[Rfam]
RNA: ffh sRNA
RNA sequence: GAUCCCGGAGGUCACCACCCGACAGCGCGUUGCGCCCUCGGGUGCUUUUUGC
Dot-bracket structure: ...............(((((((..((((...))))..)))))))........